[Rfam]
RNA sequence: CCAACGUAGAUACCCCAGGGAGGUCACUCUUUUGAGCUCUGUCCAGGUGGCACAGGGGAGCAUAAGGUUCUACCCCAUGAGACACAAUCCUUUUCCAUAACGUUGGAGAUAAGCCUGUCCCUUAAGUCUAUGCCCGCAUAUUCCUAUGGCUUUUCAGAGUCCUAUAGACAAUGACUGAGGCGAUAAAGCACACAGGAAACAUCU
Numbered sequence: 001c002c003a004a005c006g007u008a009g010a011u012a013c014c015c016c017a018g019g020g021a022g023g024u025c026a027c028u029c030u031u032u033u034g035a036g037c038u039c040u041g042u043c044c045a046g047g048u049g050g051c052a053c054a055g056g057g058g059a060g061c062a063u064a065a066g067g068u069u070c071u072a073c074c075c076c077a078u079g080a081g082a083c084a085c086a087a088u089c090c091u092u093u094u095c096c097a098u099a100a101c102g103u104u105g106g107a108g109a110u111a112a113g114c115c116u117g118u119c120c121c122u123u124a125a126g127u128c129u130a131u132g133c134c135c136g137c138a139u140a141u142u143c144c145u146a147u148g149g150c151u152u153u154u155c156a157g158a159g160u161c162c163u164a165u166a167g168a169c170a171a172u173g174a175c176u177g178a179g180g181c182g183a184u185a186a187a188g189c190a191c192a193c194a195g196g197a198a199a200c201a202u203c204u
Stems, first nucleotide, its partner, number of pairs: 001106007009043004014036001016034001019030004047098004056091004060085001063082001065078001133196002136193001139190001150182001152180004159169003